[Rfam]
RNA sequence: CUCUGGAUUAGGCAAUAAUUCAGGGCAGGAGGAA
Numbered sequence: 001c002u003c004u005g006g007a008u009u010a011g012g013c014a015a016u017a018a019u020u021c022a023g024g025g026c027a028g029g030a031g032g033a034a
Base pairs, nucleotide, nucleotide: 001025002024003023004022005021008018009017010016
RNA: L31-Firmicutes ribosomal protein leader